A member of the RNA family "Purine riboswitch aptamer" from Paenibacillus sp. 32O-W, 101 nucleotides long. The family's consensus secondary structure is taken from published work. The source organism's lineage runs through Bacteria, Bacillati, Caryophanales, Paenibacillaceae and Paenibacillus. Rfam's curators write: Riboswitches are metabolite binding domains within certain messenger RNAs that serve as precision sensors for their corresponding targets.
[Rfam]
RNA sequence: AAGGACAACAAAAUAACUUUUCGUAUAAUCUCAAGAAUCGGCUUGAGAGUCUCUACAAGGUCACCGUAAAUGAUCUGGCUACGAAAAGCGAAGAAGAGCGU
Numbered sequence: 001a002a003g004g005a006c007a008a009c010a011a012a013a014u015a016a017c018u019u020u021u022c023g024u025a026u027a028a029u030c031u032c033a034a035g036a037a038u039c040g041g042c043u044u045g046a047g048a049g050u051c052u053c054u055a056c057a058a059g060g061u062c063a064c065c066g067u068a069a070a071u072g073a074u075c076u077g078g079c080u081a082c083g084a085a086a087a088g089c090g091a092a093g094a095a096g097a098g099c100g101u
Stems, first nucleotide, its partner, number of pairs: 018087008029048007058076006